[Rfam]
RNA: Cyanobacteria transfer-messenger RNA
RNA sequence: CUGCCACAAUGACGGAGUCCGGUUUCGGCCGGACUAGGUGGCUCACACCAGUGUUUCGGACAGCGGUUCGAUUCCGCUCAGCUCCAUUUCACGGGGCUGCAAUGGUUUCGACGGGGCAUGAGGAGGGUGACUGAAGCCUGCUCGGUCAGAGCAAACCCGUAACAGCGAACAACAUCGUUCGUUUCUCCCGUCAAGCUGCCCCCGUGGCCGCCUGACAUCUCUAAGGGAGAUGGGGUGAGGUCAGCCUUAUCACCCAAAUGACCGCUUGGGGGUGGAAGCCCCC
Number, nucleotide and partner (000 for none) at each position: 001c000002u000003g000004c000005c000006a000007c000008a000009a000010u000011g000012a000013c000014g000015g000016a000017g034018u033019c032020c031021g030022g029023u028024u000025u000026c000027g000028g023029c022030c021031g020032g019033a018034c017035u000036a000037g132038g131039u130040g000041g128042c127043u126044c125045a000046c000047a000048c123049c122050a000051g119052u118053g117054u116055u115056u114057c113058g112059g000060a000061c000062a078063g077064c076065g075066g074067u000068u000069c000070g000071a000072u000073u000074c066075c065076g064077c063078u062079c099080a098081g097082c096083u095084c094085c093086a000087u000088u000089u000090c000091a000092c000093g085094g084095g083096g082097c081098u080099g079100c000101a000102a000103u000104g000105g000106u000107u000108u000109c000110g000111a000112c058113g057114g056115g055116g054117c053118a052119u051120g000121a000122g049123g048124a000125g044126g043127g042128u041129g000130a039131c038132u037133g000134a000135a000136g000137c000138c000139u153140g152141c151142u150143c149144g000145g000146u000147c000148a000149g143150a142151g141152c140153a139154a000155a000156c000157c000158c000159g000160u000161a000162a000163c000164a000165g000166c000167g000168a000169a000170c000171a000172a000173c000174a000175u000176c000177g000178u000179u000180c000181g000182u000183u000184u000185c000186u000187c000188c000189c000190g000191u000192c000193a000194a213195g212196c000197u000198g208199c207200c206201c000202c000203c000204g000205u000206g200207g199208c198209c000210g000211c000212c195213u194214g000215a000216c000217a000218u000219c000220u000221c000222u000223a000224a000225g000226g255227g254228a000229g251230a250231u249232g248233g247234g246235g245236u244237g000238a000239g000240g000241u000242c000243a000244g236245c235246c234247u233248u232249a231250u230251c229252a000253c000254c227255c226256a000257a000258a000259u000260g000261a000262c000263c000264g000265c000266u000267u000268g283269g282270g281271g280272g279273u278274g000275g000276a000277a000278g273279c272280c271281c270282c269283c268